[Rfam]
RNA sequence: GGGUCAUGAUGAGAACUCAUAUUGUUUCAAAGAGAGAUGAUGACCUAAAAAUCAAGCUCAAUAGGAGUACACUGAGGCCC
Numbered sequence: 001g002g003g004u005c006a007u008g009a010u011g012a013g014a015a016c017u018c019a020u021a022u023u024g025u026u027u028c029a030a031a032g033a034g035a036g037a038u039g040a041u042g043a044c045c046u047a048a049a050a051a052u053c054a055a056g057c058u059c060a061a062u063a064g065g066a067g068u069a070c071a072c073u074g075a076g077g078c079c080c
Stems, first nucleotide, its partner, number of pairs: 001080004005074002007071002
Record summary
The family of this 80-nucleotide RNA sequence from Odobenus rosmarus is "Small nucleolar RNA SNORD115". For this family Rfam cites "Identification of brain-specific and imprinted small nucleolar RNA genes exhibiting an unusual genomic organization" (Cavaille et al., Proc Natl Acad Sci U S A, 2000).